Shown here is a 76-nucleotide sequence from Papio anubis, a member of the family "Small nucleolar RNA SNORD115". A reference for the family is Cavaille et al. (2000), "Identification of brain-specific and imprinted small nucleolar RNA genes exhibiting an unusual genomic organization", Proc Natl Acad Sci U S A. It scores 72 bits against the family's covariance model. Pairs were carried over by alignment from the consensus structure, which was predicted with PFOLD.

RNA sequence: GGGCCAAUGAUGAGUUAUUAUCUUGACGAGAAAUGAUGACAUAAAAAUCAAGCUUAGUUGGAUUACGCUGAGGCCA
Dot-bracket structure: .(((((.((........................................................)).))..))).